RNA sequence: CGAGCGACCCUCUGUUAAGGAACUCGGCAAAUUAACCCCGUACCUUUGGAAGAAGGGGUGCCUGCGUAGCUGUGUGUGCUUGCACACAUGGUGAGAAGGUUGCAAGAAAUCGGCUCAAGCGACUGUUUACCAAAAACACAGGUCUCUGCGAACGCGAAAGCGGAAGUAUAGGGGCUGACUCCUGCCCAGUGCCGGAAGGUUACGAGGAGUGGUGUGCGUAGCCACGAAUCUAAGCCCCGGUGAACGGCGGCCGUAACUAUAACGGUCCUAAGGUAGCGAAAUUCCUUGUCGGGUAAGUUCCGACCCGCACGAAAGGAGUAACGACUUGAGCGCUGUCUCGACAGAGGACUCG
Numbered sequence: 001c002g003a004g005c006g007a008c009c010c011u012c013u014g015u016u017a018a019g020g021a022a023c024u025c026g027g028c029a030a031a032u033u034a035a036c037c038c039c040g041u042a043c044c045u046u047u048g049g050a051a052g053a054a055g056g057g058g059u060g061c062c063u064g065c066g067u068a069g070c071u072g073u074g075u076g077u078g079c080u081u082g083c084a085c086a087c088a089u090g091g092u093g094a095g096a097a098g099g100u101u102g103c104a105a106g107a108a109a110u111c112g113g114c115u116c117a118a119g120c121g122a123c124u125g126u127u128u129a130c131c132a133a134a135a136a137c138a139c140a141g142g143u144c145u146c147u148g149c150g151a152a153c154g155c156g157a158a159a160g161c162g163g164a165a166g167u168a169u170a171g172g173g174g175c176u177g178a179c180u181c182c183u184g185c186c187c188a189g190u191g192c193c194g195g196a197a198g199g200u201u202a203c204g205a206g207g208a209g210u211g212g213u214g215u216g217c218g219u220a221g222c223c224a225c226g227a228a229u230c231u232a233a234g235c236c237c238c239g240g241u242g243a244a245c246g247g248c249g250g251c252c253g254u255a256a257c258u259a260u261a262a263c264g265g266u267c268c269u270a271a272g273g274u275a276g277c278g279a280a281a282u283u284c285c286u287u288g289u290c291g292g293g294u295a296a297g298u299u300c301c302g303a304c305c306c307g308c309a310c311g312a313a314a315g316g317a318g319u320a321a322c323g324a325c326u327u328g329a330g331c332g333c334u335g336u337c338u339c340g341a342c343a344g345a346g347g348a349c350u351c352g
Base pairs, nucleotide, nucleotide: 001352002351003350004349009347010346011345012344013343014342015341016340018338019337020336035059036058037057038056039055044049060100061099062098063097065095073088074087075086076085077084078083101105113331114330115329116328117327118326119325120323121322124138125137126136141176142175143174144173145172146171147170148169149166153162154161155160179318180317181316182315184248185247186246189245190244191241192240193239194238195237198236199235200234204230205229209225210224211223212222213221249267250266251265252264253263254262268272278305288304289303290302291301292300293299

Bacterial large subunit ribosomal RNA: a 352-nucleotide part of an RNA from Ktedonobacter racemifer. The base pairs follow the family's consensus structure, which is taken from published work. A reference for the family is Yusupov et al. (2001), "Crystal structure of the ribosome at 5.5 A resolution", Science. Its family is annotated with structural constituent of ribosome and ribosome in the Gene Ontology. Taxonomically the source falls in Ktedonobacter racemifer (Bacteria, Chloroflexota, Ktedonobacteraceae, Ktedonobacter). Rfam's curators put it in the seed alignment.